[Rfam]
A member of the RNA family "Lysine riboswitch aptamer" from Tepidibacillus fermentans, 176 nucleotides long. A search with the family's covariance model found it, with a score of 130 bits. About the family: Riboswitches are metabolite binding domains within certain messenger RNAs that serve as precision sensors for their corresponding targets. The family's consensus secondary structure is taken from published work.
RNA sequence: AAUGUAGAUAGAGGUGCGGUGCUUAAGAGUAAAGUUAUUCAUCAUGGCAAUUGGAAUAACUUAAAAGGAAGUACUGCCGAAGUGUAUGAUUUUCGCCAAAAAAUCAUACGCUGGGUCUGUGCAGAAUAUGUACAGAACUGUCACAAACGUCAAGUUUGUGGAGCGCUAUCGAUGGU
Numbered sequence: 001a002a003u004g005u006a007g008a009u010a011g012a013g014g015u016g017c018g019g020u021g022c023u024u025a026a027g028a029g030u031a032a033a034g035u036u037a038u039u040c041a042u043c044a045u046g047g048c049a050a051u052u053g054g055a056a057u058a059a060c061u062u063a064a065a066a067g068g069a070a071g072u073a074c075u076g077c078c079g080a081a082g083u084g085u086a087u088g089a090u091u092u093u094c095g096c097c098a099a100a101a102a103a104u105c106a107u108a109c110g111c112u113g114g115g116u117c118u119g120u121g122c123a124g125a126a127u128a129u130g131u132a133c134a135g136a137a138c139u140g141u142c143a144c145a146a147a148c149g150u151c152a153a154g155u156u157u158g159u160g161g162a163g164c165g166c167u168a169u170c171g172a173u174g175g176u
Stems, first nucleotide, its partner, number of pairs: 007170005016077009032062008081112012113139002116136008141161007